[Rfam]
RNA sequence: AAAAAGGGCUUCUGUCGUGCGUGGCACGGGGGGGGCCGCGUGUUCCCCCCGCGGAAUCGACAUCAAGAGAUUUCGGAAGCACAAUUUUUGUGAGGGAGGGCUGCUGGUAACCGCCUGGCUGGUAACCGCCUGUUCCGGCACCCCG
Numbered sequence: 001a002a003a004a005a006g007g008g009c010u011u012c013u014g015u016c017g018u019g020c021g022u023g024g025c026a027c028g029g030g031g032g033g034g035g036c037c038g039c040g041u042g043u044u045c046c047c048c049c050c051g052c053g054g055a056a057u058c059g060a061c062a063u064c065a066a067g068a069g070a071u072u073u074c075g076g077a078a079g080c081a082c083a084a085u086u087u088u089u090g091u092g093a094g095g096g097a098g099g100g101c102u103g104c105u106g107g108u109a110a111c112c113g114c115c116u117g118g119c120u121g122g123u124a125a126c127c128g129c130c131u132g133u134u135c136c137g138g139c140a141c142c143c144c145g
Stems, first nucleotide, its partner, number of pairs: 008080005013026005027051010052075007098143003103139005109134003
U11 spliceosomal RNA: a 145-nucleotide RNA sequence from Melospiza melodia. Its Rfam clan is "U1 clan".